[Rfam]
RNA sequence: GCGGAGGGCUGGAUGACCGCGGCGCGGCGACGCGUCGAGGAAAGUCCGGACUCCAUGAGGCAGCGGUGCCGGGUAACGCCCGGCGGGGGCAACCCCAGGGACAGCGCCACAGAGAACAGACCGCCCGUCUUCGGACAGGUAAGGGUGAAACGGUGGGGUAAGAGCCCACCGGGGGGCUGGCAACAGCGCCCGCAUGGCAAGCCCCACCGGGAGCAAUGCCGAAUAGGGAUCGCGUGCGGGGCAACCCGCAGGGCCGCCUUGCCCCAGCAGAUCCGGGUAGGCAGCUAGAUCCGUCCGGUAACGGACGGACCAGAGGAAUGGUCAUCCAGCCGCGCAAGCGGUGGACAAAAUCCGGCUUACAGGCCCUCCGCGCAU
Numbered sequence: 001g002c003g004g005a006g007g008g009c010u011g012g013a014u015g016a017c018c019g020c021g022g023c024g025c026g027g028c029g030a031c032g033c034g035u036c037g038a039g040g041a042a043a044g045u046c047c048g049g050a051c052u053c054c055a056u057g058a059g060g061c062a063g064c065g066g067u068g069c070c071g072g073g074u075a076a077c078g079c080c081c082g083g084c085g086g087g088g089g090c091a092a093c094c095c096c097a098g099g100g101a102c103a104g105c106g107c108c109a110c111a112g113a114g115a116a117c118a119g120a121c122c123g124c125c126c127g128u129c130u131u132c133g134g135a136c137a138g139g140u141a142a143g144g145g146u147g148a149a150a151c152g153g154u155g156g157g158g159u160a161a162g163a164g165c166c167c168a169c170c171g172g173g174g175g176g177c178u179g180g181c182a183a184c185a186g187c188g189c190c191c192g193c194a195u196g197g198c199a200a201g202c203c204c205c206a207c208c209g210g211g212a213g214c215a216a217u218g219c220c221g222a223a224u225a226g227g228g229a230u231c232g233c234g235u236g237c238g239g240g241g242c243a244a245c246c247c248g249c250a251g252g253g254c255c256g257c258c259u260u261g262c263c264c265c266a267g268c269a270g271a272u273c274c275g276g277g278u279a280g281g282c283a284g285c286u287a288g289a290u291c292c293g294u295c296c297g298g299u300a301a302c303g304g305a306c307g308g309a310c311c312a313g314a315g316g317a318a319u320g321g322u323c324a325u326c327c328a329g330c331c332g333c334g335c336a337a338g339c340g341g342u343g344g345a346c347a348a349a350a351u352c353c354g355g356c357u358u359a360c361a362g363g364c365c366c367u368c369c370g371c372g373c374a375u
Base pairs, nucleotide, nucleotide: 001371002370003369004368005367006366007365008364009363010362011360012326013325014324015323016322017321018320020037021036022035023034024033025032026031042358043357044356046355047354048353049352050351051213052212053211054210058260059259060258064209065208066207067206068205069083070082071081072080073079084098085096086095087094088093099204100203104202105201106198107197108196121144122143123140124139125138127136128135129134152170153169154168155167156166157165171193172191173190174189176187177186178185179184217283218282219281220280227274228273229272230271231270251265252264253263255261290309291308292307293306294305295304296303297302
Source information
Rfam assigns this 375-nucleotide RNA sequence from Paracoccus liaowanqingii to the family "Bacterial RNase P class A". NCBI's taxonomy places the organism under Bacteria, Pseudomonadota, Alphaproteobacteria, Paracoccaceae, Paracoccus. The base pairs follow the family's consensus structure, which is taken from published work. Rfam links the family to the GO terms dimeric ribonuclease P complex, ribonuclease P activity and tRNA processing.